Shown here is a 104-nucleotide sequence, a member of the family "RAGATH-18 RNA".

RNA sequence: ACUGUGAAGUGUACAUAGUUGUUCCAACAUUGGUUGUUCCAACAUUGGAACUUGUGAGUAGCGUAUUGUUUAUAAUCGCCAAAGCAUACACAUCGAAGCAGUAA
Numbered sequence: 001a002c003u004g005u006g007a008a009g010u011g012u013a014c015a016u017a018g019u020u021g022u023u024c025c026a027a028c029a030u031u032g033g034u035u036g037u038u039c040c041a042a043c044a045u046u047g048g049a050a051c052u053u054g055u056g057a058g059u060a061g062c063g064u065a066u067u068g069u070u071u072a073u074a075a076u077c078g079c080c081a082a083a084g085c086a087u088a089c090a091c092a093u094c095g096a097a098g099c100a101g102u103a104a
Stems, first nucleotide, its partner, number of pairs: 001102005009091005053086003061079003066075002